[Rfam]
RNA sequence: GGCUUUGCUACAUUCUCGCGACUAAGGCAAGCUGCCGCCUCAAACGGCGGCUUGCAUUAGCCGCGCGAACCUCUGUAACAAGCAGGCCGGCUACACCUUUUUGUCUGCAACGGCAAUACAUUAACCUGAUUUUCCGUUGCUUCCUAGAAGAAAGGGGCCAACGUAGGCCCCUUUAC
Numbered sequence: 001g002g003c004u005u006u007g008c009u010a011c012a013u014u015c016u017c018g019c020g021a022c023u024a025a026g027g028c029a030a031g032c033u034g035c036c037g038c039c040u041c042a043a044a045c046g047g048c049g050g051c052u053u054g055c056a057u058u059a060g061c062c063g064c065g066c067g068a069a070c071c072u073c074u075g076u077a078a079c080a081a082g083c084a085g086g087c088c089g090g091c092u093a094c095a096c097c098u099u100u101u102u103g104u105c106u107g108c109a110a111c112g113g114c115a116a117u118a119c120a121u122u123a124a125c126c127u128g129a130u131u132u133u134c135c136g137u138u139g140c141u142u143c144c145u146a147g148a149a150g151a152a153a154g155g156g157g158c159c160a161a162c163g164u165a166g167g168c169c170c171c172u173u174u175a176c
Stems, first nucleotide, its partner, number of pairs: 002083003006080002010076003017067004022060004027055011091128001154171006
Shown here is a 176-nucleotide RNA from Edwardsiella hoshinae, a member of the family "SraG RNA". From the family's description: This RNA was discovered in E. coli during a large scale screen. Evidence was found for specific cleavage of this RNA. A search with the family's covariance model found it, with a score of 88 bits.